[Rfam]
RNA sequence: AACAACGAUGAUGAGUUCUAGCAGACCUGUAAUGAUUGCGGAUAUGAUCGUAAUUAUUUGAACAUCUAAGGGACUGAGUUGUU
Numbered sequence: 001a002a003c004a005a006c007g008a009u010g011a012u013g014a015g016u017u018c019u020a021g022c023a024g025a026c027c028u029g030u031a032a033u034g035a036u037u038g039c040g041g042a043u044a045u046g047a048u049c050g051u052a053a054u055u056a057u058u059u060g061a062a063c064a065u066c067u068a069a070g071g072g073a074c075u076g077a078g079u080u081g082u083u
Stems, first nucleotide, its partner, number of pairs: 002082005
Rfam assigns this 83-nucleotide RNA to the family "Small nucleolar RNA SNORD25". Clan: SNORD25 clan. The family's consensus secondary structure was predicted with PFOLD. Rfam links the family to the GO terms nucleolus and RNA processing. On this family, see Qu et al., Nucleic Acids Res 2001: "Identification of 10 novel snoRNA gene clusters from Arabidopsis thaliana".